Source information:
This 66-nucleotide sequence from Populus alba belongs to the Rfam family "MIR164 microRNA precursor family". A search with the family's covariance model found it, with a score of 65 bits. Pairs were carried over by alignment from the consensus structure, which was predicted with RNAalifold. Taxonomically the source falls in Populus (Eukaryota, fabids, Malpighiales, Salicaceae). A reference for the family is Reinhart et al. (2002), "MicroRNAs in plants", Genes Dev.
[Rfam]
Nucleotides: 066
Stems, first nucleotide, its partner, number of pairs: 001064008010055002013052011
Number, partner (000 for none) and nucleotide at each position: 001064u002063g003062g004061a005060g006059a007058a008057g009000g010055g011054g012000a013052g014051c015050a016049c017048g018047u019046g020045c021044a022043a023042g024000g025000a026000a027000a028000g029000c030000u031000u032000g033000a034000a035000g036000a037000g038000a039000a040000a041000g042023c043022u044021u045020g046019c047018a048017c049016g050015u051014g052013c053000c054011c055010u056000g057008c058007u059006u060005c061004u062003c063002c064001a065000g066000c